The record is a 155-nucleotide RNA sequence, which matches "radC RNA" in Rfam. It is one of the family's seed sequences. It is annotated as a cis-regulatory element. The family has 148 seed sequences and 500 matches in Rfam 15.1.

RNA sequence: GGCUAUGACUCGUGUCCGUCGGCGUAGCCGACAACAUGCCCAGGUAGCCCAGACCUUCAAGGCUACGGUGCGUUGCGACGCACGGUCUGAUUCUUCACAACGACGUUCACCGCGUCUUCUUCCAUCCCCCUGGGGCAGUGACUGCCCUCGCGGGU
Numbered sequence: 001g002g003c004u005a006u007g008a009c010u011c012g013u014g015u016c017c018g019u020c021g022g023c024g025u026a027g028c029c030g031a032c033a034a035c036a037u038g039c040c041c042a043g044g045u046a047g048c049c050c051a052g053a054c055c056u057u058c059a060a061g062g063c064u065a066c067g068g069u070g071c072g073u074u075g076c077g078a079c080g081c082a083c084g085g086u087c088u089g090a091u092u093c094u095u096c097a098c099a100a101c102g103a104c105g106u107u108c109a110c111c112g113c114g115u116c117u118u119c120u121u122c123c124a125u126c127c128c129c130c131u132g133g134g135g136c137a138g139u140g141a142c143u144g145c146c147c148u149c150g151c152g153g154g155u
Base pairs, nucleotide, nucleotide: 011038012037013036014035015033018032019031020030021029022028023027044066045065046064047063048062049061052087053086054085055084068083069082070081071080072079073078124155125154126153132148133147134146135145136144137143138142